A member of the RNA family "MicX Vibrio cholerae sRNA" from Vibrio navarrensis, 193 nucleotides long. The family's consensus secondary structure was predicted with CMfinder. The match comes from Rfam's covariance-model search (175 bits). NCBI's taxonomy places the organism under Bacteria, Pseudomonadati, Pseudomonadota, Vibrionaceae, Vibrio. The literature on the family includes a 2007 paper in Mol Microbiol by Davis and Waldor, "RNase E-dependent processing stabilizes MicX, a Vibrio cholerae sRNA".
[Rfam]
RNA sequence: AGUAUAAGAAUAAGAGCGACCGUAACAGGUCGCUCAUUUAUUUGUCCUUUGUCUACACUCUUGGUUUGGCCGCCGAUCAGUAGCAAAGGCAUUUCUGGCGUUACGCAUAGCUGGCUGUUAGCUUUGUUCCUUACGCUUAAAAACUAACAGUUUUUGUAACCAGAUGCCUGAGUUUAGACUCAGGCUUUUUUAU
Numbered sequence: 001a002g003u004a005u006a007a008g009a010a011u012a013a014g015a016g017c018g019a020c021c022g023u024a025a026c027a028g029g030u031c032g033c034u035c036a037u038u039u040a041u042u043u044g045u046c047c048u049u050u051g052u053c054u055a056c057a058c059u060c061u062u063g064g065u066u067u068g069g070c071c072g073c074c075g076a077u078c079a080g081u082a083g084c085a086a087a088g089g090c091a092u093u094u095c096u097g098g099c100g101u102u103a104c105g106c107a108u109a110g111c112u113g114g115c116u117g118u119u120a121g122c123u124u125u126g127u128u129c130c131u132u133a134c135g136c137u138u139a140a141a142a143a144c145u146a147a148c149a150g151u152u153u154u155u156g157u158a159a160c161c162a163g164a165u166g167c168c169u170g171a172g173u174u175u176a177g178a179c180u181c182a183g184g185c186u187u188u189u190u191u192a193u
Base pairs, nucleotide, nucleotide: 014035015034016033017032018031019030020029021028043091044090048088049087050086053083054082055081056080061076062075063074064073065072100160101159102158103157104156105155113152114151115150116149117148118147119146120145121144166185167184168183169182170181171180172179173178